[Rfam]
RNA: 6S / SsrS RNA
RNA sequence: UAAACCCUGUUGUGUUGGUGAUGCUGUACAACCGGUUUUGGGCCAACACGAAUAAAAAUGGUUUCUUUUUUUUCAUAAUAAAGCGAUAGGUUUCGGCCAAGGCUGCGUUAUGGAACGAGAAACCAACCUGCGAUUGCAGGUUCAAAACUUAACAGCACACGGCACAUCGGGGUGUUU
Dot-bracket structure: .(.((((((.(((((..((..............((((.((((((..............(((.(((((..(.(((((((.............................)))))))).))))).))).............)))))).)))).........)).))))).)))))).)..
Numbered sequence: 001u002a003a004a005c006c007c008u009g010u011u012g013u014g015u016u017g018g019u020g021a022u023g024c025u026g027u028a029c030a031a032c033c034g035g036u037u038u039u040g041g042g043c044c045a046a047c048a049c050g051a052a053u054a055a056a057a058a059u060g061g062u063u064u065c066u067u068u069u070u071u072u073u074c075a076u077a078a079u080a081a082a083g084c085g086a087u088a089g090g091u092u093u094c095g096g097c098c099a100a101g102g103c104u105g106c107g108u109u110a111u112g113g114a115a116c117g118a119g120a121a122a123c124c125a126a127c128c129u130g131c132g133a134u135u136g137c138a139g140g141u142u143c144a145a146a147a148c149u150u151a152a153c154a155g156c157a158c159a160c161g162g163c164a165c166a167u168c169g170g171g172g173u174g175u176u177u
Stems, first nucleotide, its partner, number of pairs: 002175001004173006011166005018160002034149004039144006059125003063121005070115001072114007